[Rfam]
RNA sequence: CUAAAGUUCCUCCUACUUCAAAGGAGGUGGUGGCGGGAAAACCGAAGGUUUCCAGUUUCCUUUCAAAGAACUGGUGGGGCGGGUGGCC
Numbered sequence: 001c002u003a004a005a006g007u008u009c010c011u012c013c014u015a016c017u018u019c020a021a022a023g024g025a026g027g028u029g030g031u032g033g034c035g036g037g038a039a040a041a042c043c044g045a046a047g048g049u050u051u052c053c054a055g056u057u058u059c060c061u062u063u064c065a066a067a068g069a070a071c072u073g074g075u076g077g078g079g080c081g082g083g084u085g086g087c088c
Stems, first nucleotide, its partner, number of pairs: 009027006045062004052074006
A member of the RNA family "wcaG RNA" from Synechococcus phage S-B68, 88 nucleotides long. A search with the family's covariance model found it, with a score of 43 bits. Pairs were carried over by alignment from the consensus structure, which is taken from published work.